The family of this 76-nucleotide RNA sequence from Galemys pyrenaicus is "Small nucleolar RNA SNORD103/SNORD85".
Its family is annotated with nucleolus and RNA processing in the Gene Ontology.
The organism belongs to Galemys, within Eukaryota.
A search with the family's covariance model found it, with a score of 78 bits.
For this family Rfam cites "Identification of 13 novel human modification guide RNAs" (Vitali et al., Nucleic Acids Res, 2003).
By type it is a C/D-box small nucleolar RNA.

RNA sequence: ACUGGCAAGGAUGACAUUUACUUGCCCUCACUGAGACAUAGUUCUUUGAUGAGAGCACUAAUUGUUCUGAGCCAGU
Numbered sequence: 001a002c003u004g005g006c007a008a009g010g011a012u013g014a015c016a017u018u019u020a021c022u023u024g025c026c027c028u029c030a031c032u033g034a035g036a037c038a039u040a041g042u043u044c045u046u047u048g049a050u051g052a053g054a055g056c057a058c059u060a061a062u063u064g065u066u067c068u069g070a071g072c073c074a075g076u
Stems, first nucleotide, its partner, number of pairs: 001076006